Description
mir-296 microRNA precursor family: a 79-nucleotide RNA from Pongo pygmaeus. The organism belongs to Pongo, within Eukaryota. The sequence is in the family's curated seed alignment. Its family is annotated with miRNA-mediated post-transcriptional gene silencing and RISC complex in the Gene Ontology.
Nucleotides: 079
Stems, first nucleotide, its partner, number of pairs: 006075005013068007021060002023057002026055007034048003
Number, partner (000 for none) and nucleotide at each position: 001000a002000g003000g004000a005000c006075c007074c008073u009072u010071c011000c012000g013068g014067a015066g016065g017064g018063c019062c020000c021060c022059c023057c024056c025000u026055c027054a028053a029052u030051c031050c032049u033000g034048u035047u036046g037000u038000g039000c040000c041000u042000a043000a044000u045000u046036c047035a048034g049032a050031g051030g052029g053028u054027u055026g056024g057023g058000u059022g060021g061000a062019g063018g064017c065016u066015c067014u068013c069000c070000u071010g072009a073008a074007g075006g076000g077000c078000u079000c